[Rfam]
RNA sequence: CCCAAAUGCAUUGACGUUGCGUCCAAAGUGUCCAGGCACUUUGGACGCAACGUCAAUGCAUUUGGG
Number, nucleotide and partner (000 for none) at each position: 001c066002c065003c064004a063005a000006a062007u060008g059009c058010a057011u056012u055013g054014a053015c052016g051017u000018u000019g048020c000021g046022u045023c044024c043025a042026a041027a040028g000029u000030g000031u000032c000033c000034a000035g000036g000037c000038a000039c000040u027041u026042u025043g024044g023045a022046c021047g000048c019049a000050a000051c016052g015053u014054c013055a012056a011057u010058g009059c008060a007061u000062u006063u004064g003065g002066g001
RNA: mir-33 microRNA precursor family